This 67-nucleotide sequence from Cnephaeus nilssonii belongs to the Rfam family "mir-9256 microRNA precursor family". The base pairs follow the family's consensus structure, which was predicted with RNAalifold. The organism belongs to Cnephaeus, within Eukaryota. The match comes from Rfam's covariance-model search (80 bits). Its family is annotated with RISC complex and miRNA-mediated post-transcriptional gene silencing in the Gene Ontology.

[Rfam]
RNA sequence: AUUUGCACUGAGUAGCCAGAUUAUUAUGUGUUCGGAGAUCAUAAUAAUCUGGCCACUCAGUGUAUAU
Numbered sequence: 001a002u003u004u005g006c007a008c009u010g011a012g013u014a015g016c017c018a019g020a021u022u023a024u025u026a027u028g029u030g031u032u033c034g035g036a037g038a039u040c041a042u043a044a045u046a047a048u049c050u051g052g053c054c055a056c057u058c059a060g061u062g063u064a065u066a067u
Stems, first nucleotide, its partner, number of pairs: 004064010015053003019049010